[Rfam]
RNA sequence: AGCCCGGCACGCAACUGGCGAUAGGCGCUCUACCCGCAUCGGGUUUAGAGCGCCGAUGUGGGAACACCACGGGGGAGCGUGCCGCAAAACUCAUGUGGGUGUUGUGAUCAGCCGUUCGCCUGGGCAGCCCUG
Numbered sequence: 001a002g003c004c005c006g007g008c009a010c011g012c013a014a015c016u017g018g019c020g021a022u023a024g025g026c027g028c029u030c031u032a033c034c035c036g037c038a039u040c041g042g043g044u045u046u047a048g049a050g051c052g053c054c055g056a057u058g059u060g061g062g063a064a065c066a067c068c069a070c071g072g073g074g075g076a077g078c079g080u081g082c083c084g085c086a087a088a089a090c091u092c093a094u095g096u097g098g099g100u101g102u103u104g105u106g107a108u109c110a111g112c113c114g115u116u117c118g119c120c121u122g123g124g125c126a127g128c129c130c131u132g
Stems, first nucleotide, its partner, number of pairs: 005084008015074002017120005058070004109127001111125003
Rfam assigns this 132-nucleotide RNA from Rhodoferax antarcticus to the family "ZMP/ZTP riboswitch aptamer (pfl RNA motif)". A search with the family's covariance model found it, with a score of 56 bits. Pairs were carried over by alignment from the consensus structure, which is taken from published work.